[Rfam]
RNA: mir-27 microRNA precursor family
RNA sequence: UGAAGAUACAGAACUUAGCUUAUUGGUGAGCAUUGAGCUAAAAUGAUUUGUUCACAGUGGCUAAGUUCAGUGUCUGGA
Numbered sequence: 001u002g003a004a005g006a007u008a009c010a011g012a013a014c015u016u017a018g019c020u021u022a023u024u025g026g027u028g029a030g031c032a033u034u035g036a037g038c039u040a041a042a043a044u045g046a047u048u049u050g051u052u053c054a055c056a057g058u059g060g061c062u063a064a065g066u067u068c069a070g071u072g073u074c075u076g077g078a
Stems, first nucleotide, its partner, number of pairs: 011068010026055007